Description:
A member of the RNA family "ACEA small nucleolar RNA U3" from Vitrella brassicaformis, 196 nucleotides long. Rfam describes the family as follows. Small nucleolar RNAs (snoRNAs) are involved in the processing and modification of rRNA in the nucleolus. The match comes from Rfam's covariance-model search (84 bits). Pairs were carried over by alignment from the consensus structure, which is taken from published work. NCBI's taxonomy places the organism under Eukaryota, Sar, Colpodellida, Vitrellaceae, Vitrella. Clan: U3 clan. It is annotated as a C/D-box small nucleolar RNA.
RNA sequence: UCGACUGUGCUCGAACAGGAUCACUUCUAUAGUGUUUCCAACAGUUCUCCACCACAGCGACAGACCAACUCAUCACCCAUGACGAUGAGCUAUGCUUCCCGCCCGAUGGGACUCUAUGGUCUGCCUCGCGAGAGGCACAACCGUGAUGACCCACACGGCUUCGGUCGUGACGGGCUGUGGAAGGAUCUGAAUGGGA
Number, nucleotide and partner (000 for none) at each position: 001u041002c000003g039004a000005c000006u000007g000008u034009g033010c032011u031012c000013g000014a000015a000016c000017a028018g027019g026020a025021u000022c000023a000024c000025u020026u019027c018028u017029a000030u000031a011032g010033u009034g008035u000036u000037u000038c000039c003040a000041a001042c000043a000044g069045u068046u067047c000048u000049c000050c000051a000052c000053c000054a000055c000056a000057g000058c000059g000060a000061c000062a000063g000064a000065c000066c000067a046068a045069c044070u000071c000072a000073u000074c000075a000076c195077c194078c193079a192080u191081g000082a000083c000084g000085a000086u000087g000088a000089g000090c000091u000092a000093u000094g000095c183096u182097u181098c180099c179100c177101g176102c000103c174104c173105g000106a000107u153108g152109g151110g150111a000112c000113u000114c000115u000116a000117u000118g142119g141120u140121c000122u000123g136124c000125c000126u000127c000128g000129c000130g000131a000132g000133a000134g000135g000136c123137a000138c000139a000140a120141c119142c118143g000144u000145g000146a000147u000148g000149a000150c110151c109152c108153a107154c169155a168156c167157g166158g000159c164160u000161u000162c000163g000164g159165u000166c157167g156168u155169g154170a000171c000172g000173g104174g103175c000176u101177g100178u000179g099180g098181a097182a096183g095184g000185a000186u000187c000188u000189g000190a000191a080192u079193g078194g077195g076196a000